[Rfam]
Shown here is a 75-nucleotide sequence from Winogradskya consettensis, a member of the family "ASpks TB sRNA".
The family's consensus secondary structure is taken from published work.
A search with the family's covariance model found it, with a score of 72 bits.
The organism belongs to Winogradskya, within Bacteria.
The family's RNA type in Rfam is antisense RNA.
A reference for the family is Arnvig and Young (2009), "Identification of small RNAs in Mycobacterium tuberculosis", Mol Microbiol.

RNA sequence: CUUGACCGAGCCGAUCCGGACCGGGUUCCCGGCGGGGCGGUCCUGCCCGUACGUCGCGAGCAGCGCCUGCGCCUC
Numbered sequence: 001c002u003u004g005a006c007c008g009a010g011c012c013g014a015u016c017c018g019g020a021c022c023g024g025g026u027u028c029c030c031g032g033c034g035g036g037g038c039g040g041u042c043c044u045g046c047c048c049g050u051a052c053g054u055c056g057c058g059a060g061c062a063g064c065g066c067c068u069g070c071g072c073c074u075c
Stems, first nucleotide, its partner, number of pairs: 014026004032070002038065002043060002047056001049054001